[Rfam]
Shown here is a 279-nucleotide part of an RNA from Neurospora crassa, a member of the family "Eukaryotic large subunit ribosomal RNA". The family's consensus secondary structure is taken from published work.
RNA sequence: GAAUUAAGGUUUUGUGCGAAUAUUUAGGUAUAAAACCUAUAUAUAUAAUGAAAGUGAAUGUAGGUAAGAGUUUUAAUAUAUUAUUAACCGAUUUUAAUGUAUUUGAAUAGAUUUAAAUAAGAAUAUUAAAUUUUAGACCCGAAAGAUAGUAAAUUAUACUUAAAUAGAAUAAAAUUAAAGGAAAUUCUAAUAGAAGUUUAUAAUAAUUUUAACAUAUAAAUCGAUUAUUAAAUUUAAGUAUAGGGGCGAAAGAUUAAUUAAACUAUUUAGUAGUUAGUU
Numbered sequence: 001g002a003a004u005u006a007a008g009g010u011u012u013u014g015u016g017c018g019a020a021u022a023u024u025u026a027g028g029u030a031u032a033a034a035a036c037c038u039a040u041a042u043a044u045a046u047a048a049u050g051a052a053a054g055u056g057a058a059u060g061u062a063g064g065u066a067a068g069a070g071u072u073u074u075a076a077u078a079u080a081u082u083a084u085u086a087a088c089c090g091a092u093u094u095u096a097a098u099g100u101a102u103u104u105g106a107a108u109a110g111a112u113u114u115a116a117a118u119a120a121g122a123a124u125a126u127u128a129a130a131u132u133u134u135a136g137a138c139c140c141g142a143a144a145g146a147u148a149g150u151a152a153a154u155u156a157u158a159c160u161u162a163a164a165u166a167g168a169a170u171a172a173a174a175u176u177a178a179a180g181g182a183a184a185u186u187c188u189a190a191u192a193g194a195a196g197u198u199u200a201u202a203a204u205a206a207u208u209u210u211a212a213c214a215u216a217u218a219a220a221u222c223g224a225u226u227a228u229u230a231a232a233u234u235u236a237a238g239u240a241u242a243g244g245g246g247c248g249a250a251a252g253a254u255u256a257a258u259u260a261a262a263c264u265a266u267u268u269a270g271u272a273g274u275u276a277g278u279u
Stems, first nucleotide, its partner, number of pairs: 005135008014126003020044003025039005048055002063085005070077002087118001090114002092111003098105002138277001141274001145267006154243011165231001167199004174191004179186002203228004208224002212221001245255002
The organism belongs to Neurospora crassa, within Eukaryota.